The family of this 112-nucleotide sequence from Nocardioides cavernaquae is "TPP riboswitch aptamer (THI element)". It scores 58 bits against the family's covariance model. The source organism's lineage runs through Bacteria, Bacillati, Actinomycetes, Nocardioidaceae and Nocardioides. Rfam describes the family as follows. Vitamin B(1) in its active form thiamin pyrophosphate (TPP) is an essential coenzyme that is synthesised by coupling of pyrimidine and thiazole moieties in bacteria. Its family is annotated with thiamine pyrophosphate binding in the Gene Ontology.
[Rfam]
RNA sequence: AACCACCCACACGGGAGCCUGCGGAAGCGGGCUGAGAGGGAGCUGACACCGCUCCGACCGUCGAACCUGAUCCGGGUAAUGCCGGCGAUAGGGACGUGAAGGAGUGCCCCCG
Numbered sequence: 001a002a003c004c005a006c007c008c009a010c011a012c013g014g015g016a017g018c019c020u021g022c023g024g025a026a027g028c029g030g031g032c033u034g035a036g037a038g039g040g041a042g043c044u045g046a047c048a049c050c051g052c053u054c055c056g057a058c059c060g061u062c063g064a065a066c067c068u069g070a071u072c073c074g075g076g077u078a079a080u081g082c083c084g085g086c087g088a089u090a091g092g093g094a095c096g097u098g099a100a101g102g103a104g105u106g107c108c109c110c111c112g
Base pairs, nucleotide, nucleotide: 008098009097010096011061012060013059014058017032018031019030020029021028039055040054041053042052043051066092067091068090069089072085073084074083075082